The family of this 104-nucleotide sequence from Sporomusa ovata is "pan motif".
The organism belongs to Sporomusa, within Bacteria.
RNA sequence: UAGGUGGCAUCCGCGAGGAGUCACACUAAGUAACAAAGAGAAUGGAUGUGGCGGAAUUUCAUAGUUAAAUAUACCGCUUAGAUCCGCAGGACUGAGACGGGAGG
Numbered sequence: 001u002a003g004g005u006g007g008c009a010u011c012c013g014c015g016a017g018g019a020g021u022c023a024c025a026c027u028a029a030g031u032a033a034c035a036a037a038g039a040g041a042a043u044g045g046a047u048g049u050g051g052c053g054g055a056a057u058u059u060c061a062u063a064g065u066u067a068a069a070u071a072u073a074c075c076g077c078u079u080a081g082a083u084c085c086g087c088a089g090g091a092c093u094g095a096g097a098c099g100g101g102a103g104g
Base pairs, nucleotide, nucleotide: 001028002027003026004024005023006022007021008020010019011018074100075099076098077096078095079094080093081092083091084090085089